[Rfam]
RNA: Small Cajal body specific RNA 21
Organism: Fukomys damarensis
RNA sequence: UGGCUCUGUUUCCUGGGAGUUAGACUCAGCCCUUUCUACCUCCCCUCAGCUGAGCCUAGAAAAGAGUGGCCAACUGUCCUGUCUGGGAGAGACAUUUAAGAAAGGAGCCUUGCCUGGACAGUUUCACCCUCACACUU
Numbered sequence: 001u002g003g004c005u006c007u008g009u010u011u012c013c014u015g016g017g018a019g020u021u022a023g024a025c026u027c028a029g030c031c032c033u034u035u036c037u038a039c040c041u042c043c044c045c046u047c048a049g050c051u052g053a054g055c056c057u058a059g060a061a062a063a064g065a066g067u068g069g070c071c072a073a074c075u076g077u078c079c080u081g082u083c084u085g086g087g088a089g090a091g092a093c094a095u096u097u098a099a100g101a102a103a104g105g106a107g108c109c110u111u112g113c114c115u116g117g118a119c120a121g122u123u124u125c126a127c128c129c130u131c132a133c134a135c136u137u
Stems, first nucleotide, its partner, number of pairs: 002056005015044005021038004066131001068129002072124002077118003085110003